[Rfam]
RNA: Small nucleolar RNA SNORA15
Nucleotides: 137
Base pairs, nucleotide, nucleotide: 001057002056003055004054005053006052014044015043016042017041018040070130071129072128073126074125075124076123077122078121089117090116091115092114093113094112095111096110097109
Number, partner (000 for none) and nucleotide at each position: 001057g002056c003055a004054u005053g006052g007000a008000u009000g010000a011000a012000u013000u014044c015043u016042g017041c018040a019000c020000u021000a022000g023000c024000u025000u026000u027000c028000u029000u030000c031000a032000g033000u034000a035000g036000c037000u038000g039000a040018u041017g042016c043015a044014g045000u046000c047000a048000g049000a050000c051000a052006c053005c054004a055003u056002g057001c058000c059000a060000g061000a062000g063000c064000a065000a066000a067000u068000u069000c070130c071129u072128u073126u074125u075124u076123u077122u078121c079000c080000a081000c082000u083000g084000u085000g086000c087000c088000u089117g090116g091115u092114g093113u094112g095111c096110u097109u098000u099000u100000u101000u102000a103000u104000g105000g106000a107000a108000u109097g110096a111095g112094c113093a114092u115091g116090c117089c118000c119000u120000u121078g122077g123076a124075a125074g126073g127000g128072g129071a130070g131000c132000a133000c134000a135000u136000c137000a